[Rfam]
RNA: RT-13 RNA
Organism: Xaviernesmea oryzae
RNA sequence: GCGUGCGUUCGGGAAGUGUCCAGCUCUACGAGCUGGGGUCCAGGGUCAGGAUCAACUCCCCGAACUCUGC
Numbered sequence: 001g002c003g004u005g006c007g008u009u010c011g012g013g014a015a016g017u018g019u020c021c022a023g024c025u026c027u028a029c030g031a032g033c034u035g036g037g038g039u040c041c042a043g044g045g046u047c048a049g050g051a052u053c054a055a056c057u058c059c060c061c062g063a064a065c066u067c068u069g070c
Stems, first nucleotide, its partner, number of pairs: 007065007015057003020036005038052004